SAM (S-adenosyl methionine) riboswitch aptamer: a 113-nucleotide RNA sequence from Sinomonas sp. R1AF57. SAM-IV is a mRNA element that regulates gene expression via direct sensing of S-adenosylmethionine (SAM or AdoMet). SAM-IV riboswitches share conserved nucleotide positions with the previously described SAM-I riboswitches sequence analysis and molecular recognition experiments suggest that SAM-I and SAM-IV riboswitches share similar ligand binding sites, but have different scaffolds. It scores 104 bits against the family's covariance model.
RNA sequence: GGUCAUGAGUGCCAGCGCGAAACCCCGGUUUGCUGGCCGGCAACCCUCCUGAUGCGGUGGGGUGCCCCGGGUGAAGACCUGGUCCGGCGAGAGCCGCCGGUCAAGCGCAGCGC
Numbered sequence: 001g002g003u004c005a006u007g008a009g010u011g012c013c014a015g016c017g018c019g020a021a022a023c024c025c026c027g028g029u030u031u032g033c034u035g036g037c038c039g040g041c042a043a044c045c046c047u048c049c050u051g052a053u054g055c056g057g058u059g060g061g062g063u064g065c066c067c068c069g070g071g072u073g074a075a076g077a078c079c080u081g082g083u084c085c086g087g088c089g090a091g092a093g094c095c096g097c098c099g100g101u102c103a104a105g106c107g108c109a110g111c112g113c
Stems, first nucleotide, its partner, number of pairs: 001079004009038001011037006021030002039066003044062003048057002082102001084100006